[Rfam]
RNA sequence: AGCGUUUCUACUAGGAGGGUGUCAUCCCAGUGCCCAGACACUGGGAUCCAGCCUUCCUGCAAUCUCAUCGAAAACGUUGUAUUUUAACGUAAAACACCUAUUUUUAUGCUUACCAACUUAAUAAAAUUCCUGGAUCCCAGUGUCUGGGCACUGGGAUGACACCAUUCUUUUUUCUGGAUUCA
Number, nucleotide and partner (000 for none) at each position: 001a000002g000003c000004g000005u000006u000007u000008c000009u000010a000011c177012u176013a175014g174015g173016a000017g000018g000019g000020u161021g160022u159023c158024a157025u156026c155027c154028c153029a152030g151031u150032g149033c148034c147035c146036a000037g144038a143039c142040a141041c140042u139043g138044g137045g136046a135047u134048c133049c132050a131051g130052c000053c000054u000055u000056c000057c000058u000059g000060c000061a000062a000063u000064c000065u000066c000067a000068u000069c000070g000071a000072a000073a000074a000075c000076g000077u000078u000079g000080u000081a000082u000083u000084u000085u000086a000087a000088c000089g000090u000091a000092a000093a000094a000095c000096a000097c000098c000099u000100a000101u000102u000103u000104u000105u000106a000107u000108g000109c000110u000111u000112a000113c000114c000115a000116a000117c000118u000119u000120a000121a000122u000123a000124a000125a000126a000127u000128u000129c000130c051131u050132g049133g048134a047135u046136c045137c044138c043139a042140g041141u040142g039143u038144c037145u000146g035147g034148g033149c032150a031151c030152u029153g028154g027155g026156a025157u024158g023159a022160c021161a020162c000163c000164a000165u000166u000167c000168u000169u000170u000171u000172u000173u015174c014175u013176g012177g011178a000179u000180u000181c000182a000
Background
Wolbachia sRNA 46: a 182-nucleotide RNA from Trichonephila clavata. It scores 68 bits against the family's covariance model.